RNA sequence: AAAGCAAAGAUGUGUGUGUAUCGGCUAAGUGCGUUUAAAUGCACUUUUCACGAAAGAAUUCUUUGCAAUAUCAAUUUGGGGCAGAUGGGCAGUUGUGAUUCAUCGUCAAUUGAAUAGCUUAACAAUCAUCUUCCCCACAUUU
Dot-bracket structure: ...(((((((.....((((((.................))))))...............)))))))...........((((.((((((...((((........................))))..)))))).))))......
small nucleolar RNA snoR135: a 142-nucleotide RNA sequence from Arabidopsis lyrata. Pairs were carried over by alignment from the consensus structure, which was predicted with RNAalifold. The family's RNA type in Rfam is H/ACA-box small nucleolar RNA. The literature on the family includes a 2009 paper in Nucleic Acids Res by Chen and Wu, "Mining small RNA sequencing data: a new approach to identify small nucleolar RNAs in Arabidopsis". Taxonomically the source falls in Arabidopsis lyrata (Eukaryota, Streptophyta, Pentapetalae, rosids).